[Rfam]
RNA sequence: CGAAUCCCACCGAAUAAGGUCUAGCCAACCACUCGUAGCUAGCUUUGGCCUCCAAAGGGUAACCUAAGGAGGUAAGCGUAGGCAAGCAAGGUGAUGGGCCGGAAGCAAUUAUGCUGAAGUGAUUGAGCCUCGAAAUAUCCUAAACGGAAAGGCCGAUGCUGUCGACAAAGCAGAAGGCAAUAUCACAUUAGACGCAAUGGCUAGACUAAUGUGACUUUCCCGGGGUCAUAGAGCC
Dot-bracket structure: ..........(((....(((.[[[[..)))..)))..(...((((((((((((..(((....)))..))))))...)).))))...).....................................(.((((((.............(((((((((..((((........))))...)))....(((((((((.(......]]]]).))))))))))))))))))))))........
Numbered sequence: 001c002g003a004a005u006c007c008c009a010c011c012g013a014a015u016a017a018g019g020u021c022u023a024g025c026c027a028a029c030c031a032c033u034c035g036u037a038g039c040u041a042g043c044u045u046u047g048g049c050c051u052c053c054a055a056a057g058g059g060u061a062a063c064c065u066a067a068g069g070a071g072g073u074a075a076g077c078g079u080a081g082g083c084a085a086g087c088a089a090g091g092u093g094a095u096g097g098g099c100c101g102g103a104a105g106c107a108a109u110u111a112u113g114c115u116g117a118a119g120u121g122a123u124u125g126a127g128c129c130u131c132g133a134a135a136u137a138u139c140c141u142a143a144a145c146g147g148a149a150a151g152g153c154c155g156a157u158g159c160u161g162u163c164g165a166c167a168a169a170g171c172a173g174a175a176g177g178c179a180a181u182a183u184c185a186c187a188u189u190a191g192a193c194g195c196a197a198u199g200g201c202u203a204g205a206c207u208a209a210u211g212u213g214a215c216u217u218u219c220c221c222g223g224g225g226u227c228a229u230a231g232a233g234c235c
Stems, first nucleotide, its partner, number of pairs: 011035003018030003022203004038087001042083004046078002048073006056065003125227001127226006146220006152178003157172004183214009193204001

Shown here is a 235-nucleotide sequence from Heliorestis acidaminivorans, a member of the family "Group II catalytic intron D1-D4-6". Group II introns are found in rRNA, tRNA and mRNA of organelles in fungi, plants and protists, and also in mRNA in bacteria. Gene Ontology term of the family: Group II intron splicing. On this family, see Bonen and Vogel, Trends Genet 2001: "The ins and outs of group II introns". Pairs were carried over by alignment from the consensus structure.